[Rfam]
RNA: SAM riboswitch aptamer (S box leader)
Organism: Petrotoga mobilis
RNA sequence: UCCUUAUCGAGAGAGGCGGAGGGACUGGCCCGAAGAAGCCCGGCAACCUGCAUAAUUUAACAAAAUUAUGCAAUGGUGCUAAAUCCUGCAGAGAAAUUCUGGGAGAUAAGGA
Numbered sequence: 001u002c003c004u005u006a007u008c009g010a011g012a013g014a015g016g017c018g019g020a021g022g023g024a025c026u027g028g029c030c031c032g033a034a035g036a037a038g039c040c041c042g043g044c045a046a047c048c049u050g051c052a053u054a055a056u057u058u059a060a061c062a063a064a065a066u067u068a069u070g071c072a073a074u075g076g077u078g079c080u081a082a083a084u085c086c087u088g089c090a091g092a093g094a095a096a097u098u099c100u101g102g103g104a105g106a107u108a109a110g111g112a
Stems, first nucleotide, its partner, number of pairs: 001112008013041001015040003021031003025088001027086002042080004047076002049072008084104001089101005